Shown here is a 103-nucleotide RNA from Pongo abelii, a member of the family "Mitochondrial DNA control region secondary structure A".
The family's consensus secondary structure is taken from published work.
RNA sequence: UACUUUCAAGGGGAACUAGAUUUGGGUGCCACCCAAGUACUGACUCACUCACAACGACCCAUGUAUUUCGUGCAUUACUGCCAGUCAACAUGAAUAUUAUCUA
Numbered sequence: 001u002a003c004u005u006u007c008a009a010g011g012g013g014a015a016c017u018a019g020a021u022u023u024g025g026g027u028g029c030c031a032c033c034c035a036a037g038u039a040c041u042g043a044c045u046c047a048c049u050c051a052c053a054a055c056g057a058c059c060c061a062u063g064u065a066u067u068u069c070g071u072g073c074a075u076u077a078c079u080g081c082c083a084g085u086c087a088a089c090a091u092g093a094a095u096a097u098u099a100u101c102u103a
Base pairs, nucleotide, nucleotide: 005094006093007092008091010089012086013085017080018079019078022036023035024034025033026032027031037058038057041053042052061075062074063073064072065071